[Rfam]
RNA sequence: CAAACUUAAUGAUGAUUAAGAUUUUAACGCAUAGUUCAACUGAAUCUAAUGAGGACAAAAACUUACCAUCAAAUAGUCUUUCACCCCUAUCUGAUCUAUGUUUG
Dot-bracket structure: ...((.((........................................................................................)).))...

The record is a 104-nucleotide RNA sequence from Pichia membranifaciens, which matches "Small nucleolar RNA snR60/Z15/Z230/Z193/J17" in Rfam. The family has 23 seed sequences and 3,592 matches in Rfam 15.1. The family's RNA type in Rfam is C/D-box small nucleolar RNA. The base pairs follow the family's consensus structure. Its family is annotated with nucleolus and RNA processing in the Gene Ontology. Taxonomically the source falls in Pichia (Eukaryota, Opisthokonta, saccharomyceta, Saccharomycotina).